[Rfam]
c-di-GMP-I riboswitch aptamer: an 87-nucleotide RNA sequence from Clostridium oryzae. The match comes from Rfam's covariance-model search (63 bits). Pairs were carried over by alignment from the consensus structure, which is taken from published work.
RNA sequence: AUGAUUAAAAGGCAAGUCUUCCGAAAGGUUGAUACGCAAAGCCGUGAAUCUAAAGUAGUAUGCUGCCAAGAUUGUCUGGUUACCAUG
Numbered sequence: 001a002u003g004a005u006u007a008a009a010a011g012g013c014a015a016g017u018c019u020u021c022c023g024a025a026a027g028g029u030u031g032a033u034a035c036g037c038a039a040a041g042c043c044g045u046g047a048a049u050c051u052a053a054a055g056u057a058g059u060a061u062g063c064u065g066c067c068a069a070g071a072u073u074g075u076c077u078g079g080u081u082a083c084c085a086u087g
Base pairs, nucleotide, nucleotide: 012037013036017032018031021028022027040081041080042079043078046076047075048072049071050070055066056065057064058063